[Rfam]
RNA sequence: GUCGCCAAGGAUGGCGAUUAAAUACAUUGAAUGCGAUGUUUUUGCAGCCCAAAAACUCGCCGCAAACACGGUACACGGACGUACGGUGUUUGCGAGGG
Number, nucleotide and partner (000 for none) at each position: 001g018002u017003c016004g015005c014006c013007a000008a000009g000010g000011a000012u000013g006014g005015c004016g003017a002018u001019u000020a000021a000022a000023u000024a000025c000026a000027u000028u000029g000030a000031a000032u000033g000034c059035g058036a057037u000038g056039u055040u054041u053042u052043u051044g050045c000046a000047g000048c000049c000050c044051a043052a042053a041054a040055a039056c038057u036058c035059g034060c000061c094062g093063c092064a091065a090066a089067c088068a087069c086070g000071g084072u083073a082074c081075a000076c000077g000078g000079a000080c000081g074082u073083a072084c071085g000086g069087u068088g067089u066090u065091u064092g063093c062094g061095a000096g000097g000098g000